[Rfam]
RNA sequence: UUGGGUUCACUGUGAUUAGGCCUAAAAAUGGUGCUAAUGAUAAAUUGGCAUUGUUAGAAAUGUGAAAUCCUAAAGUAGUUUGUUCCCCUCGCUAUCCAUUGUAGAUUAUUUGAAUGCUACAUUUGGACGUUGGGUAACUAUAUUU
Dot-bracket structure: (((((..(((.....((......((.((((...(((.........))))))).))))....)))...))).))........(((.(((.((...((((.....(((.......)).)......))))))..))).))).......
This 145-nucleotide RNA sequence from Chenopodium quinoa belongs to the Rfam family "Small nucleolar RNA snoR136". A search with the family's covariance model found it, with a score of 61 bits. The source organism's lineage runs through Eukaryota, Tracheophyta, Euphyllophyta, Caryophyllales and Chenopodium. Rfam 15.1 lists 452 matches to the family in 212 species. By type it is an H/ACA-box small nucleolar RNA.